[Rfam]
RNA: eL15-Euryarchaeota ribosomal protein leader
Organism: Halarchaeum acidiphilum
RNA sequence: CCCGCCGCGACGAUCCCGUCGUGACGGGACGACAUGUGGUGCGCGUCGCGCACUGAAUCGCAAG
Numbered sequence: 001c002c003c004g005c006c007g008c009g010a011c012g013a014u015c016c017c018g019u020c021g022u023g024a025c026g027g028g029a030c031g032a033c034a035u036g037u038g039g040u041g042c043g044c045g046u047c048g049c050g051c052a053c054u055g056a057a058u059c060g061c062a063a064g
Base pairs, nucleotide, nucleotide: 001028002027003026004025030060031059032058038054039053040052041051042050